RNA sequence: AGCUUUAACUGAAUAGUCACUCGUAUAAUUUUGAGGAUAUGGCUCAAAAGUCUCUACCGGGCAACCGUAAAUUGCCCGACUACGAGUGGAACGCAUUACCAG
Numbered sequence: 001a002g003c004u005u006u007a008a009c010u011g012a013a014u015a016g017u018c019a020c021u022c023g024u025a026u027a028a029u030u031u032u033g034a035g036g037a038u039a040u041g042g043c044u045c046a047a048a049a050g051u052c053u054c055u056a057c058c059g060g061g062c063a064a065c066c067g068u069a070a071a072u073u074g075c076c077c078g079a080c081u082a083c084g085a086g087u088g089g090a091a092c093g094c095a096u097u098a099c100c101a102g
Base pairs, nucleotide, nucleotide: 018088019087020086021085022084023083024082025081029049030048031047032046033045034044035043058078059077060076061075062074063073064072
The record is a 102-nucleotide RNA from Carboxydocella thermautotrophica, which matches "Purine riboswitch aptamer" in Rfam. The base pairs follow the family's consensus structure, which is taken from published work. Lineage of the source: Bacteria > Bacillota > Clostridia > Carboxydocella > Carboxydocella thermautotrophica. Its family is annotated with purine nucleobase biosynthetic process in the Gene Ontology. A search with the family's covariance model found it, with a score of 94 bits. From the family's description: Riboswitches are metabolite binding domains within certain messenger RNAs that serve as precision sensors for their corresponding targets.